[Rfam]
RNA sequence: AGCACAGCGUGUGACUGGCGGAAAGUGGAUCAACCACAGGGAGCACGCAGGAAGUGAGAGCCGUCCGCCUGGGCACGAAAU
Number, nucleotide and partner (000 for none) at each position: 001a000002g000003c000004a000005c050006a000007g048008c047009g046010u045011g044012u043013g000014a000015c040016u039017g069018g068019c067020g066021g065022a000023a000024a000025g037026u036027g035028g034029a000030u000031c000032a000033a000034c028035c027036a026037c025038a000039g016040g015041g000042a000043g012044c011045a010046c009047g008048c007049a000050g005051g000052a000053a000054g000055u000056g000057a000058g076059a000060g074061c073062c072063g000064u000065c021066c020067g019068c018069c017070u000071g000072g062073g061074c060075a000076c058077g000078a000079a000080a000081u000